About this RNA
The family of this 99-nucleotide RNA sequence from Gorilla gorilla is "mir-342 microRNA precursor family". Pairs were carried over by alignment from the consensus structure, which was predicted with RNAalifold.

[Rfam]
RNA sequence: GAAACUGGGCGCAAGGUGAGGGGUGCUAUCUGUGAUUGAGGGACAUGGUUAAUGGAAUUGUCUCACACAGAAAUCGCACCCGUCACCUUGGCCUACUUA
Numbered sequence: 001g002a003a004a005c006u007g008g009g010c011g012c013a014a015g016g017u018g019a020g021g022g023g024u025g026c027u028a029u030c031u032g033u034g035a036u037u038g039a040g041g042g043a044c045a046u047g048g049u050u051a052a053u054g055g056a057a058u059u060g061u062c063u064c065a066c067a068c069a070g071a072a073a074u075c076g077c078a079c080c081c082g083u084c085a086c087c088u089u090g091g092c093c094u095a096c097u098u099a
Base pairs, nucleotide, nucleotide: 012090013089014088015087016086018084019083021081022080023079024078025077026076029071030070031069032068033067034066037065038064039063040062041061